Shown here is a 30-nucleotide sequence from Sporanaerobacter sp. PP17-6a, a member of the family "CRISPR RNA direct repeat element".
The organism belongs to Sporanaerobacter, within Bacteria.
It scores 41 bits against the family's covariance model.
Rfam links the family to the GO term defense response.
RNA sequence: AUUUCAAUACAUCUUAUGUUAAGGUUCAAA
Numbered sequence: 001a002u003u004u005c006a007a008u009a010c011a012u013c014u015u016a017u018g019u020u021a022a023g024g025u026u027c028a029a030a
Base pairs, nucleotide, nucleotide: 009019010018011017012016